The record is a 103-nucleotide sequence from Pelagirhabdus alkalitolerans, which matches "TPP riboswitch aptamer (THI element)" in Rfam. It scores 79 bits against the family's covariance model. NCBI's taxonomy places the organism under Bacteria, Bacillati, Bacilli, Caryophanales, Pelagirhabdus.
RNA sequence: GAAGUCCACUAGGGGCGCUUUUUGCUGAGAUAAGGAUUAAAUCCUUGGUCCCUUAGAACCUGAACUGGUUAAUACCAGCGUAGGAAAGUGGAGACGGGAUAGU
Numbered sequence: 001g002a003a004g005u006c007c008a009c010u011a012g013g014g015g016c017g018c019u020u021u022u023u024g025c026u027g028a029g030a031u032a033a034g035g036a037u038u039a040a041a042u043c044c045u046u047g048g049u050c051c052c053u054u055a056g057a058a059c060c061u062g063a064a065c066u067g068g069u070u071a072a073u074a075c076c077a078g079c080g081u082a083g084g085a086a087a088g089u090g091g092a093g094a095c096g097g098g099a100u101a102g103u
Stems, first nucleotide, its partner, number of pairs: 006091005011053004016047001017025002032046005059084004065078004